RNA sequence: ACUGUAAAGGGCAAACCCGCUGAAAGGCGGGGACGCAAAGCCACCGGUCUAAGGGCUGCGCUGGGAGCGGCCACGAUAGCGGGGUUGCCAGGA
Dot-bracket structure: ..((......((...((((((....))))))..[))..((((.((((((.........................))).])))))))..))...
The family of this 93-nucleotide RNA sequence from Povalibacter uvarum is "c-di-GMP-I-GGC riboswitch aptamer". NCBI's taxonomy places the organism under Bacteria, Pseudomonadati, Pseudomonadota, Steroidobacteraceae, Povalibacter. The family's consensus secondary structure is taken from published work. It scores 68 bits against the family's covariance model. The family has 40 seed sequences and 1,298 matches in Rfam 15.1. Clan: c-di-GMP_I riboswitch clan.